[Rfam]
Nucleotides: 100
Base pairs, nucleotide, nucleotide: 001100002099004097005096
Number, partner (000 for none) and nucleotide at each position: 001100u002099u003000u004097g005096a006000g007000g008000u009000g010000a011000u012000g013000a014000u015000c016000c017000u018000u019000u020000c021000c022000c023000c024000a025000a026000c027000u028000u029000a030000u031000c032000g033000a034000c035000u036000a037000u038000g039000a040000u041000u042000a043000u044000a045000c046000c047000g048000u049000g050000c051000g052000a053000u054000a055000g056000u057000u058000c059000u060000u061000c062000c063000c064000u065000u066000c067000a068000a069000a070000a071000a072000a073000g074000g075000c076000u077000u078000a079000u080000a081000a082000g083000u084000c085000a086000g087000u088000a089000g090000u091000u092000c093000u094000g095000a096005u097004c098000u099002a100001a

Small nucleolar RNA Z103: a 100-nucleotide sequence from Zizania palustris. It is annotated as a C/D-box small nucleolar RNA. A reference for the family is Chen et al. (2003), "The high diversity of snoRNAs in plants: identification and comparative study of 120 snoRNA genes from Oryza sativa", Nucleic Acids Res. Its family is annotated with RNA processing and nucleolus in the Gene Ontology. Lineage of the source: Eukaryota > Magnoliopsida > Petrosaviidae > commelinids > Zizania. The family has 12 seed sequences and 2,844 matches in Rfam 15.1.